A member of the RNA family "Archaeal RNase P" from Ignicoccus islandicus, 317 nucleotides long. Rfam describes the family as follows. Ribonuclease P (RNase P) is a ubiquitous endoribonuclease, found in archaea, bacteria and eukarya as well as chloroplasts and mitochondria. Its best characterised activity is the generation of mature 5'-ends of tRNAs by cleaving the 5'-leader elements of precursor-tRNAs. The family is grouped with related families in Rfam's "RNaseP clan". The match comes from Rfam's covariance-model search (153 bits).
RNA sequence: CGAAGGCCGCUGGCGGCCACGGGGCCGCGAAGGCCCUGAGGAAGCUCCACCCUCCCCGCGGCACCGGAGUCCCGCGAGGGACCGGGUUGAGAGCCCGGGCUCCGGCACAGAAACGAGACCCCCGGGCCAGAGAGAGGAUGGAGAACUCCUUCCCGGCGACGGGAAGGAUAUCCGGAUCCAUGAAGGCCUAGCGGGGCUGAAACGGCCGUCCUCCGGGGAGCAAGGGGGUCCCCCGAUGCCUCGCCGCGGAAGGGGGACCCGGGGACCGCUUAGCCAAAUGCCGCCGAAGUACAGAAGGUGGGCUAUAGCGGCCUUCG
Numbered sequence: 001c002g003a004a005g006g007c008c009g010c011u012g013g014c015g016g017c018c019a020c021g022g023g024g025c026c027g028c029g030a031a032g033g034c035c036c037u038g039a040g041g042a043a044g045c046u047c048c049a050c051c052c053u054c055c056c057c058g059c060g061g062c063a064c065c066g067g068a069g070u071c072c073c074g075c076g077a078g079g080g081a082c083c084g085g086g087u088u089g090a091g092a093g094c095c096c097g098g099g100c101u102c103c104g105g106c107a108c109a110g111a112a113a114c115g116a117g118a119c120c121c122c123c124g125g126g127c128c129a130g131a132g133a134g135a136g137g138a139u140g141g142a143g144a145a146c147u148c149c150u151u152c153c154c155g156g157c158g159a160c161g162g163g164a165a166g167g168a169u170a171u172c173c174g175g176a177u178c179c180a181u182g183a184a185g186g187c188c189u190a191g192c193g194g195g196g197c198u199g200a201a202a203c204g205g206c207c208g209u210c211c212u213c214c215g216g217g218g219a220g221c222a223a224g225g226g227g228g229u230c231c232c233c234c235g236a237u238g239c240c241u242c243g244c245c246g247c248g249g250a251a252g253g254g255g256g257a258c259c260c261g262g263g264g265a266c267c268g269c270u271u272a273g274c275c276a277a278a279u280g281c282c283g284c285c286g287a288a289g290u291a292c293a294g295a296a297g298g299u300g301g302g303c304u305a306u307a308g309c310g311g312c313c314u315u316c317g
Stems, first nucleotide, its partner, number of pairs: 001317003005313007012285006020038007043304003047301005052220004057248006064216005069082005083097005098211002103208004119196003122191001124189005140173002224267002226260005